[Rfam]
RNA sequence: UUGGUUUGCGGUCAUAAAGGAUCAUGGCUCACUGCUUGAAAACGGUAUCUGAAAUGUAGGGGUGUUCCGUCCUACCAAACCGA
Numbered sequence: 001u002u003g004g005u006u007u008g009c010g011g012u013c014a015u016a017a018a019g020g021a022u023c024a025u026g027g028c029u030c031a032c033u034g035c036u037u038g039a040a041a042a043c044g045g046u047a048u049c050u051g052a053a054a055u056g057u058a059g060g061g062g063u064g065u066u067c068c069g070u071c072c073u074a075c076c077a078a079a080c081c082g083a
Base pairs, nucleotide, nucleotide: 001083002082003081004080005079006078007077008076011028012027013026014025015024019068020067021066030051031046032045033044034043056075057074058073059072060071
Rfam assigns this 83-nucleotide RNA sequence from Anaerosolibacter carboniphilus to the family "skipping-rope RNA". It scores 44 bits against the family's covariance model.